[Rfam]
RNA sequence: GAUGGCCGCGCGGGAGAGUGCGGGUCGGGAAACCGGGCCGCCGCCGAAGGAGCAACCGCCCCGGAAUCUCUCAGGCAUACGGGACCGCGCGGACAUA
Numbered sequence: 001g002a003u004g005g006c007c008g009c010g011c012g013g014g015a016g017a018g019u020g021c022g023g024g025u026c027g028g029g030a031a032a033c034c035g036g037g038c039c040g041c042c043g044c045c046g047a048a049g050g051a052g053c054a055a056c057c058g059c060c061c062c063g064g065a066a067u068c069u070c071u072c073a074g075g076c077a078u079a080c081g082g083g084a085c086c087g088c089g090c091g092g093a094c095a096u097a
Base pairs, nucleotide, nucleotide: 006092007091008090009089010088011087012086013085020041021040022039023038043076044075045074046072047071050070051069052068056064057063
The family of this 97-nucleotide RNA from Sphingomonas prati is "Glycine riboswitch aptamer". Lineage of the source: Bacteria > Pseudomonadota > Sphingomonadales > Sphingomonadaceae > Sphingomonas. The pairing is the family consensus, mapped onto this sequence. A reference for the family is Mandal et al. (2004), "A glycine-dependent riboswitch that uses cooperative binding to control gene expression", Science. The family is grouped with related families in Rfam's "Glycine riboswitch clan".